Glutamine riboswitch aptamer (glnA leader): a 48-nucleotide RNA sequence. On this family, see Ames and Breaker, RNA Biol 2011: "Bacterial aptamers that selectively bind glutamine".

RNA sequence: UACGUUCAUCCCACAGGGACGGAAGUAGCGAAAGCGAAGGAACGCACU
Numbered sequence: 001u002a003c004g005u006u007c008a009u010c011c012c013a014c015a016g017g018g019a020c021g022g023a024a025g026u027a028g029c030g031a032a033a034g035c036g037a038a039g040g041a042a043c044g045c046a047c048u
Stems, first nucleotide, its partner, number of pairs: 003044005009019004022045001028035002